Rfam assigns this 89-nucleotide RNA sequence to the family "rseX Hfq binding RNA". The family's RNA type in Rfam is small RNA. For this family Rfam cites "Down-regulation of porins by a small RNA bypasses the essentiality of the regulated intramembrane proteolysis protease RseP in Escherichia coli" (Douchin et al., J Biol Chem, 2006).

[Rfam]
RNA sequence: UUUUUUGUUUUCUGUGUCAUGAUAACUCCGUUAUUAGCCUUUUAUCGUCUUGUUUAUAUUUUUGAGCCGGCAUGAAGCCGGCUUUUUUU
Numbered sequence: 001u002u003u004u005u006u007g008u009u010u011u012c013u014g015u016g017u018c019a020u021g022a023u024a025a026c027u028c029c030g031u032u033a034u035u036a037g038c039c040u041u042u043u044a045u046c047g048u049c050u051u052g053u054u055u056a057u058a059u060u061u062u063u064g065a066g067c068c069g070g071c072a073u074g075a076a077g078c079c080g081g082c083u084u085u086u087u088u089u
Base pairs, nucleotide, nucleotide: 014038015037019034020033021032022031023030066082067081068080069079070078071077